Shown here is a 386-nucleotide RNA from Candidatus Enterovibrio altilux, a member of the family "Bacterial RNase P class A".

RNA sequence: UGAGUUGGCUGGGUAACCGCUGCUUUGUUAAUGUCCUUUGAGACGCUGGCAUAGGGGAGGAAAGUCCGGGCUCCAUAGGGCAGGGUGUCAGGUAAUGCCUGAGGGGCGCAAGCCUACGACAAGUGCAACAGAGAGUAAACCGCCGAUGGCUUACUAUUUAUAGUAUUCACAGGUAAGGGUGAAAGGGUGUGGUAAAAGCACACCGCGCGUCUGGUAACAGUUCGUGGCAAGGUAAACUCCACUCGGAGCAAGACCAAAUAGGCCCUCAUUGGCGCGGCCCGUGUUGAGGACGGGUAGGUUGCUGGAGCCUGUGAGCGAUUGCAGGCCUAGACGAAUGGUUACCACCGGUUACGGCACAGAACCCGGCUUAUAGGCCAACUCAUAUC
Numbered sequence: 001u002g003a004g005u006u007g008g009c010u011g012g013g014u015a016a017c018c019g020c021u022g023c024u025u026u027g028u029u030a031a032u033g034u035c036c037u038u039u040g041a042g043a044c045g046c047u048g049g050c051a052u053a054g055g056g057g058a059g060g061a062a063a064g065u066c067c068g069g070g071c072u073c074c075a076u077a078g079g080g081c082a083g084g085g086u087g088u089c090a091g092g093u094a095a096u097g098c099c100u101g102a103g104g105g106g107c108g109c110a111a112g113c114c115u116a117c118g119a120c121a122a123g124u125g126c127a128a129c130a131g132a133g134a135g136u137a138a139a140c141c142g143c144c145g146a147u148g149g150c151u152u153a154c155u156a157u158u159u160a161u162a163g164u165a166u167u168c169a170c171a172g173g174u175a176a177g178g179g180u181g182a183a184a185g186g187g188u189g190u191g192g193u194a195a196a197a198g199c200a201c202a203c204c205g206c207g208c209g210u211c212u213g214g215u216a217a218c219a220g221u222u223c224g225u226g227g228c229a230a231g232g233u234a235a236a237c238u239c240c241a242c243u244c245g246g247a248g249c250a251a252g253a254c255c256a257a258a259u260a261g262g263c264c265c266u267c268a269u270u271g272g273c274g275c276g277g278c279c280c281g282u283g284u285u286g287a288g289g290a291c292g293g294g295u296a297g298g299u300u301g302c303u304g305g306a307g308c309c310u311g312u313g314a315g316c317g318a319u320u321g322c323a324g325g326c327c328u329a330g331a332c333g334a335a336u337g338g339u340u341a342c343c344a345c346c347g348g349u350u351a352c353g354g355c356a357c358a359g360a361a362c363c364c365g366g367c368u369u370a371u372a373g374g375c376c377a378a379c380u381c382a383u384a385u386c
Base pairs, nucleotide, nucleotide: 001382002381003380004379005378006377007376008375009374010373011371012343013342014341015340016339017338018337020057021056023054024053026051027050028049029048030047062369063368064367066366067365068364069363070362071248072247073246074245078280079279080278081277083244084243085242086241087240088102089101090100091099092098103117104115105114106113107112118239119238123237124236125233126232140178141177142174143173144172147169148168149167186204187203188202189201190200191199205228206226207225208224209223211220212219213218252300253299254298255297262291264289265288266287267286271285272284273283274282275281307326308325309324310323311322312321313320314319